RNA sequence: GGGCGAUGAUGAUUGAUUACUUGCCAUGAGGUGAUUGGUCGUAGUUCCUUUUGGGUUUAUGCAUUCACCACGACAUGGAUAGUCUUUGGACGAAAGAAAAUGUAUCUU
Numbered sequence: 001g002g003g004c005g006a007u008g009a010u011g012a013u014u015g016a017u018u019a020c021u022u023g024c025c026a027u028g029a030g031g032u033g034a035u036u037g038g039u040c041g042u043a044g045u046u047c048c049u050u051u052u053g054g055g056u057u058u059a060u061g062c063a064u065u066c067a068c069c070a071c072g073a074c075a076u077g078g079a080u081a082g083u084c085u086u087u088g089g090a091c092g093a094a095a096g097a098a099a100a101u102g103u104a105u106c107u108u
Base pairs, nucleotide, nucleotide: 001047002046003045004044011040012039013038014037015036016035017034018033019032020031021030022029024078025077026076027075061103062102063101082091083090084089
Rfam assigns this 108-nucleotide RNA sequence from Proteiniclasticum aestuarii to the family "drum RNA". The family's RNA type in Rfam is small RNA. Rfam's curators write: Firmicutes, Bacteroidetes (1 example), Proteobacteria (2 examples), Spirochaetes (2 examples). It scores 53 bits against the family's covariance model.